[Rfam]
Nucleotides: 133
Base pairs, nucleotide, nucleotide: 003060004059005058006057007056008055009054011052017047018046019045020044021043022042023040024039025038026037027036071127072126073125075123084112085111086110087109088108089107091106092105093104094103
Number, partner (000 for none) and nucleotide at each position: 001000a002000u003060u004059c005058c006057u007056c008055a009054g010000c011052c012000u013000u014000a015000c016000u017047c018046c019045g020044g021043g022042g023040g024039c025038u026037u027036u028000u029000g030000u031000g032000c033000c034000g035000u036027a037026a038025a039024g040023c041000g042022c043021c044020c045019u046018g047017g048000c049000a050000u051000u052011g053000c054009c055008u056007g057006a058005g059004g060003a061000u062000a063000g064000a065000c066000g067000a068000g069000g070000a071127a072126g073125c074000a075123c076000a077000c078000g079000u080000c081000c082000c083000u084112c085111c086110c087109c088108a089107g090000c091106a092105a093104g094103a095000c096000u097000c098000c099000g100000c101000u102000u103094u104093c105092u106091u107089u108088u109087g110086g111085g112084g113000c114000c115000u116000g117000c118000a119000g120000g121000u122000g123075g124000a125073g126072c127071u128000g129000a130000c131000a132000g133000u